[Rfam]
RNA: Archaeal large subunit ribosomal RNA, nucleotides 1362 to 1719
RNA sequence: CAUAGUAGCAGCGUUAGUCGGGUGAGAACCCCGACGGCCGAACGAGUAAGGGUUCCUCAGCAAUGCUAAUCAGCUGAGGGUUAGCCGGUCCUAAGUCAGCCCGCAAUUCGAAGCUGACAAAAGGGAAAUAGGUUAAUAUUCCUAUGCCAGUGUGCACUCAAAGCCGACGCUUUGGGGCCGCCUCUCCCGGGCUUUCGCCCGGGUGAACAGUCCAAGACCGUGGAAGCCGUAAUGGCACGAAGCGGUCGAAUGGCUGGAUAACGCAAGAGAGGUCAACCCAGAGCCCGUGAAAAGGCAAGCACACUGUCCGUACCGAGAUCCGACACAGGUACUCGUGGCGGCGAAAGCCAAGGUCUGU
Numbered sequence: 001c002a003u004a005g006u007a008g009c010a011g012c013g014u015u016a017g018u019c020g021g022g023u024g025a026g027a028a029c030c031c032c033g034a035c036g037g038c039c040g041a042a043c044g045a046g047u048a049a050g051g052g053u054u055c056c057u058c059a060g061c062a063a064u065g066c067u068a069a070u071c072a073g074c075u076g077a078g079g080g081u082u083a084g085c086c087g088g089u090c091c092u093a094a095g096u097c098a099g100c101c102c103g104c105a106a107u108u109c110g111a112a113g114c115u116g117a118c119a120a121a122a123g124g125g126a127a128a129u130a131g132g133u134u135a136a137u138a139u140u141c142c143u144a145u146g147c148c149a150g151u152g153u154g155c156a157c158u159c160a161a162a163g164c165c166g167a168c169g170c171u172u173u174g175g176g177g178c179c180g181c182c183u184c185u186c187c188c189g190g191g192c193u194u195u196c197g198c199c200c201g202g203g204u205g206a207a208c209a210g211u212c213c214a215a216g217a218c219c220g221u222g223g224a225a226g227c228c229g230u231a232a233u234g235g236c237a238c239g240a241a242g243c244g245g246u247c248g249a250a251u252g253g254c255u256g257g258a259u260a261a262c263g264c265a266a267g268a269g270a271g272g273u274c275a276a277c278c279c280a281g282a283g284c285c286c287g288u289g290a291a292a293a294g295g296c297a298a299g300c301a302c303a304c305u306g307u308c309c310g311u312a313c314c315g316a317g318a319u320c321c322g323a324c325a326c327a328g329g330u331a332c333u334c335g336u337g338g339c340g341g342c343g344a345a346a347g348c349c350a351a352g353g354u355c356u357g358u
Base pairs, nucleotide, nucleotide: 017035018034019033020032021031022030036355037354038353039352044334045333046332047331050314051313055079056078057077058076059075060074064072065071086310087309088308090124091123095118096117097116098115099114100113102110103109128145129144130143131142132141148306149305150304151303152302153301154300155299163296164295165294169284170283171282172281173280174279175278176277180273181272182271183270184269186203187202188201189200190199208256209255210254211253217246218245219244220243221242226236227235228234262267320329321328336350337349338348339347